[Rfam]
Annotation:
Rfam assigns this 179-nucleotide sequence from Vibrio sediminis to the family "Lysine riboswitch aptamer". The source organism's lineage runs through Bacteria, Gammaproteobacteria, Vibrionales, Vibrionaceae and Vibrio. Riboswitches are metabolite binding domains within certain messenger RNAs that serve as precision sensors for their corresponding targets.
RNA sequence: UUUAGCAGAAGAGGAGCAUUGCCCAGGCAGGUGUUUUGUGGAGCCACAACUCCGGUACAUGACACUCAGGGGGAGCAAUGCCGAGAUAUAUAUUCAGUGAUGGUGAAUAUGUAUCGGUCGUACAGGCUGAAUCCUGUCGACUGUCAUCAGGUCUUUCCUGAUGAAGAGCUUCUGAGGUC
Numbered sequence: 001u002u003u004a005g006c007a008g009a010a011g012a013g014g015a016g017c018a019u020u021g022c023c024c025a026g027g028c029a030g031g032u033g034u035u036u037u038g039u040g041g042a043g044c045c046a047c048a049a050c051u052c053c054g055g056u057a058c059a060u061g062a063c064a065c066u067c068a069g070g071g072g073g074a075g076c077a078a079u080g081c082c083g084a085g086a087u088a089u090a091u092a093u094u095c096a097g098u099g100a101u102g103g104u105g106a107a108u109a110u111g112u113a114u115c116g117g118u119c120g121u122a123c124a125g126g127c128u129g130a131a132u133c134c135u136g137u138c139g140a141c142u143g144u145c146a147u148c149a150g151g152u153c154u155u156u157c158c159u160g161a162u163g164a165a166g167a168g169c170u171u172c173u174g175a176g177g178u179c
Stems, first nucleotide, its partner, number of pairs: 006174006016081007024073001030066006037059001085115012116142004122137005144164007
Dot-bracket structure: .....((((((....(((((((.(.....((((((.(.....................).))))))......).)))))))...((((((((((((.......))))))))))))((((..(((((......))))).)))).(((((((.......)))))))....)))))).....